RNA: SAM riboswitch aptamer (S box leader)
RNA sequence: UUCUUAUCAAGAGAGGUGGAGGGACUUGGCCCUGCGAAGCCUCAGCAACCAGCAAACCGCGGUUUGUAUGGUGCUAAUUCCGGAGGGACGGAACCGUCCUGAAGAUGAGAA
Numbered sequence: 001u002u003c004u005u006a007u008c009a010a011g012a013g014a015g016g017u018g019g020a021g022g023g024a025c026u027u028g029g030c031c032c033u034g035c036g037a038a039g040c041c042u043c044a045g046c047a048a049c050c051a052g053c054a055a056a057c058c059g060c061g062g063u064u065u066g067u068a069u070g071g072u073g074c075u076a077a078u079u080c081c082g083g084a085g086g087g088a089c090g091g092a093a094c095c096g097u098c099c100u101g102a103a104g105a106u107g108a109g110a111a
Stems, first nucleotide, its partner, number of pairs: 001111008013043005021032003026083004044075004049071002052067004079103001084100004